[Rfam]
The record is a 78-nucleotide RNA from Galemys pyrenaicus, which matches "Y RNA" in Rfam. Y RNAs are components of the Ro ribonucleoprotein particle (Ro RNP), in association with Ro60 and La proteins. It is annotated as a non-coding RNA gene. The match comes from Rfam's covariance-model search (57 bits). Pairs were carried over by alignment from the consensus structure, which is taken from published work.

Nucleotides: 078
Base pairs, nucleotide, nucleotide: 001074002073003072004071005070006069007068008067010066011065014062016057017056018055019054020053021052025041026040027039029037030036
Number, partner (000 for none) and nucleotide at each position: 001074a002073g003072u004071u005070g006069g007068u008067c009000c010066g011065a012000g013000g014062g015000c016057u017056g018055u019054g020053g021052g022000u023000a024000u025041u026040g027039u028000u029037a030036a031000g032000c033000u034000g035000u036030u037029u038000a039027a040026c041025a042000u043000u044000g045000u046000c047000u048000c049000c050000c051000a052021c053020c054019c055018a056017c057016a058000a059000c060000c061000a062014c063000g064000u065011u066010u067008g068007a069006c070005u071004g072003g073002c074001u075000u076000g077000g078000u